A member of the RNA family "GcvB RNA" from Aggregatibacter segnis, 180 nucleotides long. Pairs were carried over by alignment from the consensus structure, which is taken from published work. By type it is a non-coding RNA gene. It scores 86 bits against the family's covariance model. Rfam describes the family as follows. The gcvB gene encodes a small untranslated RNA involved in expression of the dipeptide and oligopeptide transport systems in Escherichia coli. Included several unknown homologues in alignment (Bateman A pers obs). It base-pairs with SorC. This interaction triggers the degradation of GcvB by RNase E, alleviating the GcvB-mediated mRNA repression of other amino acid-related transport and metabolic genes. For this family Rfam cites "Temperature-responsive in vitro RNA structurome of Yersinia pseudotuberculosis" (Righetti et al., Proc Natl Acad Sci U S A, 2016). The organism belongs to Aggregatibacter segnis, within Bacteria.
[Rfam]
RNA sequence: AUGAAACCAUACUUAAGUCACAAUUUCUUAACUGUUAAGAUUUUCGAAUUAAGUAUGAUGUUGUGUUUGCAUAUUGUUUGGUUUUUCCAAACCAAAGUAACGAAAGUUACUUUUUCUUUUCAUUUCCUGUAUUUUUGGCAUUUUCGCCAGACACCGCUCCUAAAAGAGCGGUGUUUUUUA
Numbered sequence: 001a002u003g004a005a006a007c008c009a010u011a012c013u014u015a016a017g018u019c020a021c022a023a024u025u026u027c028u029u030a031a032c033u034g035u036u037a038a039g040a041u042u043u044u045c046g047a048a049u050u051a052a053g054u055a056u057g058a059u060g061u062u063g064u065g066u067u068u069g070c071a072u073a074u075u076g077u078u079u080g081g082u083u084u085u086u087c088c089a090a091a092c093c094a095a096a097g098u099a100a101c102g103a104a105a106g107u108u109a110c111u112u113u114u115u116c117u118u119u120u121c122a123u124u125u126c127c128u129g130u131a132u133u134u135u136u137g138g139c140a141u142u143u144u145c146g147c148c149a150g151a152c153a154c155c156g157c158u159c160c161u162a163a164a165a166g167a168g169c170g171g172u173g174u175u176u177u178u179u180a
Base pairs, nucleotide, nucleotide: 003045004044009043011041013039014038018037020035021034022033024031025030074094076092077091078090079089080088081087096111097110098109099108100107101106133151134150135149152173153172154171155170156169157168158167159166